[Rfam]
RNA sequence: GGGGGCGAUUCUGGAUUCGACAAGAUUCACGAAACCCUAGGAGCAUGCCGAGGGGCGGUUGGCCUCGUAAAAAGCCGCACAGUUAUAGUUGCAAACGACGAUAACUACGCUCUAGCAGCUUAGGCUAGCUAGCCAUCUUGCUCACGUUUCUCAAAUGGGCAGAGUAUUAAGAUGGUCACCUUUACAUUUGAUAGCGAGGGAACCAUGUUCAGGGGUGAACCGCGAAACAGUACUGAACUCGCCAAUAACAAUCCUGUCUUUCGGAGUGUUGUUGGUUAACCAAUAGAAAGACUAAGCAUGUAGCGCCGAGGAUGUAGGCUUUUUGGACGCGGGUUCAAGUCCCGCCGCCUCCACCA
Numbered sequence: 001g002g003g004g005g006c007g008a009u010u011c012u013g014g015a016u017u018c019g020a021c022a023a024g025a026u027u028c029a030c031g032a033a034a035c036c037c038u039a040g041g042a043g044c045a046u047g048c049c050g051a052g053g054g055g056c057g058g059u060u061g062g063c064c065u066c067g068u069a070a071a072a073a074g075c076c077g078c079a080c081a082g083u084u085a086u087a088g089u090u091g092c093a094a095a096c097g098a099c100g101a102u103a104a105c106u107a108c109g110c111u112c113u114a115g116c117a118g119c120u121u122a123g124g125c126u127a128g129c130u131a132g133c134c135a136u137c138u139u140g141c142u143c144a145c146g147u148u149u150c151u152c153a154a155a156u157g158g159g160c161a162g163a164g165u166a167u168u169a170a171g172a173u174g175g176u177c178a179c180c181u182u183u184a185c186a187u188u189u190g191a192u193a194g195c196g197a198g199g200g201a202a203c204c205a206u207g208u209u210c211a212g213g214g215g216u217g218a219a220c221c222g223c224g225a226a227a228c229a230g231u232a233c234u235g236a237a238c239u240c241g242c243c244a245a246u247a248a249c250a251a252u253c254c255u256g257u258c259u260u261u262c263g264g265a266g267u268g269u270u271g272u273u274g275g276u277u278a279a280c281c282a283a284u285a286g287a288a289a290g291a292c293u294a295a296g297c298a299u300g301u302a303g304c305g306c307c308g309a310g311g312a313u314g315u316a317g318g319c320u321u322u323u324u325g326g327a328c329g330c331g332g333g334u335u336c337a338a339g340u341c342c343c344g345c346c347g348c349c350u351c352c353a354c355c356a
Stems, first nucleotide, its partner, number of pairs: 001352007021325005028318001034313001036311003040307002044300005049067005055078006112132005117126003133175006140165004146160001148159001151191006194223003207238005241276010252265003256292007329345005
Rfam assigns this 356-nucleotide RNA from Shewanella loihica to the family "transfer-messenger RNA". Rfam classes the family as a non-coding RNA gene. Pairs were carried over by alignment from the consensus structure, which is taken from published work. The source organism's lineage runs through Bacteria, Pseudomonadati, Alteromonadales, Shewanellaceae and Shewanella loihica.